[Rfam]
Glycine riboswitch aptamer: an 82-nucleotide RNA sequence from Marinisporobacter balticus. Lineage of the source: Bacteria > Clostridia > Peptostreptococcales > Thermotaleaceae > Marinisporobacter.

RNA sequence: CUCUGGAGAGACUCAAUAUGAGCGCCGAAGGAGCAAGCCAAUAGCAAUUUUAUUGGUGAAACUCUCAGGCAAAAGGACAGGG
Numbered sequence: 001c002u003c004u005g006g007a008g009a010g011a012c013u014c015a016a017u018a019u020g021a022g023c024g025c026c027g028a029a030g031g032a033g034c035a036a037g038c039c040a041a042u043a044g045c046a047a048u049u050u051u052a053u054u055g056g057u058g059a060a061a062c063u064c065u066c067a068g069g070c071a072a073a074a075g076g077a078c079a080g081g082g
Stems, first nucleotide, its partner, number of pairs: 001082005012022004024070003027066002031064003037057007